[Rfam]
Annotation
This 72-nucleotide RNA sequence from Papaver nudicaule belongs to the Rfam family "Plastid-ycf2 5UTR RNA". Rfam 15.1 lists 3,521 matches to the family in 417 species. It is annotated as a cis-regulatory element.

RNA sequence: AUGCAUUCAUUGAAUUGAACCUAAAAUUUACCAAUUAUGAGUUGGGCGCUUUAACCAUUCAGUCAUGAAUAC
Numbered sequence: 001a002u003g004c005a006u007u008c009a010u011u012g013a014a015u016u017g018a019a020c021c022u023a024a025a026a027u028u029u030a031c032c033a034a035u036u037a038u039g040a041g042u043u044g045g046g047c048g049c050u051u052u053a054a055c056c057a058u059u060c061a062g063u064c065a066u067g068a069a070u071a072c
Base pairs, nucleotide, nucleotide: 003072005070006069007068008067011023012020037066038065039064041063042062043061044060045059046058048056
Dot-bracket structure: ..(.((((..((.......)..).............(((.((((((.(.......).))))))))))))).)